[Rfam]
RNA sequence: UUUAUUUUGCUAGGAGAGAGCCGCACCCGUGACACGGGCCGUCGGCCGCCGAAGGCGCAGAAGCGGUGUGAGCGCACCGCCUCGAACGCUCAGGCAAAAGGACUGGCAAACGUUC
Numbered sequence: 001u002u003u004a005u006u007u008u009g010c011u012a013g014g015a016g017a018g019a020g021c022c023g024c025a026c027c028c029g030u031g032a033c034a035c036g037g038g039c040c041g042u043c044g045g046c047c048g049c050c051g052a053a054g055g056c057g058c059a060g061a062a063g064c065g066g067u068g069u070g071a072g073c074g075c076a077c078c079g080c081c082u083c084g085a086a087c088g089c090u091c092a093g094g095c096a097a098a099a100g101g102a103c104u105g106g107c108a109a110a111c112g113u114u115c
Stems, first nucleotide, its partner, number of pairs: 006110008020046004048095003051091002055089003060083002
RNA: Glycine riboswitch aptamer